[Rfam]
Nucleotides: 081
Stems, first nucleotide, its partner, number of pairs: 002080003007075006014068007022060001024058010
Number, partner (000 for none) and nucleotide at each position: 001000c002080g003079g004078u005000g006000g007075c008074c009073c010072g011071g012070u013000u014068c015067a016066a017065g018064u019063a020062a021000u022060c023000c024058a025057g026056g027055a028054u029053a030052g031051g032050c033049u034000g035000u036000u037000c038000a039000c040000a041000a042000u043000c044000u045000g046000c047000g048000u049033g050032g051031c052030c053029u054028a055027u056026u057025c058024u059000u060022g061000u062020u063019u064018a065017c066016u067015u068014g069000c070012a071011u072010u073009g074008g075007g076000a077000g078004g079003c080002u081000g
Rfam assigns this 81-nucleotide RNA from Xenopus laevis to the family "mir-26 microRNA precursor family". The family has 82 seed sequences and 2,251 matches in Rfam 15.1. The organism belongs to Xenopus, within Eukaryota. The literature on the family includes a 2001 paper in Science by Lagos-Quintana et al., "Identification of novel genes coding for small expressed RNAs".